[Rfam]
RNA sequence: AAGAGCUUGGAGUCAAUAAAGACUAAGAGGGUUGACUCAGGAAUAAA
Number, nucleotide and partner (000 for none) at each position: 001a000002a000003g000004a000005g000006c000007u041008u040009g000010g038011a037012g036013u035014c034015a033016a032017u031018a000019a000020a000021g000022a000023c000024u000025a000026a000027g000028a000029g000030g000031g017032u016033u015034g014035a013036c012037u011038c010039a000040g008041g007042a000043a000044u000045a000046a000047a000
Plastid-rpl16 group II-D1 intron: a 47-nucleotide RNA sequence from Jasminum fluminense. Lineage of the source: Eukaryota > eudicotyledons > Gunneridae > Jasmineae > Jasminum. A reference for the family is Richter et al. (2023), "Retrograde signaling in plants: A critical review focusing on the GUN pathway and beyond", Plant Commun. Rfam's curators put it in the seed alignment. About the family: Plastid-rpl16 is a non-coding RNA (ncRNA) recognised in plastids. It was recognised in and intronic region of a ribosome rpl16 gene. Its family is annotated with Group II intron splicing in the Gene Ontology.